[Rfam]
RNA: Guanidine-II riboswitch aptamer (mini-ykkC)
RNA sequence: AAGCUGGGACGACCCAGCUUUCUGCUUUUAUUCCGGGGACGACCCCA
Numbered sequence: 001a002a003g004c005u006g007g008g009a010c011g012a013c014c015c016a017g018c019u020u021u022c023u024g025c026u027u028u029u030a031u032u033c034c035g036g037g038g039a040c041g042a043c044c045c046c047a
Base pairs, nucleotide, nucleotide: 001020002019003018004017005016006015007014008013035046036045037044038043